[Rfam]
RNA sequence: UUACGUCGAAUUGACCAAAACCUGCGAAACCAGAACCCUAAGAAUUAUCGCGGGUUAACGAUUUCCCUGGUGUUGGCGCAGUAUUCGCGCACCCCGGCCUAGGC
Numbered sequence: 001u002u003a004c005g006u007c008g009a010a011u012u013g014a015c016c017a018a019a020a021c022c023u024g025c026g027a028a029a030c031c032a033g034a035a036c037c038c039u040a041a042g043a044a045u046u047a048u049c050g051c052g053g054g055u056u057a058a059c060g061a062u063u064u065c066c067c068u069g070g071u072g073u074u075g076g077c078g079c080a081g082u083a084u085u086c087g088c089g090c091a092c093c094c095c096g097g098c099c100u101a102g103g104c
Stems, first nucleotide, its partner, number of pairs: 019056008069093003076090004
This 104-nucleotide sequence from Ewingella americana belongs to the Rfam family "ArcZ RNA". By type it is a small RNA. On this family, see Argaman et al., Curr Biol 2001: "Novel small RNA-encoding genes in the intergenic regions of Escherichia coli". Pairs were carried over by alignment from the consensus structure, which was predicted with PFOLD. Rfam links the family to the GO terms protein binding and regulation of translation. NCBI's taxonomy places the organism under Bacteria, Gammaproteobacteria, Enterobacterales, Ewingella, Ewingella americana. Rfam's curators write: This RNA was discovered in E. coli during a large scale screen. SraH expression is highly abundant in stationary phase, but low levels could be detected in exponentially growing cells as well. ArcZ RNA function as an activator of the alternative sigma factor RpoS as a response of stress. ArcZ afects and is also affected by the ArcA-ArcB regulon (aerobic/anaerobic-sensing ArcA-ArcB two-component).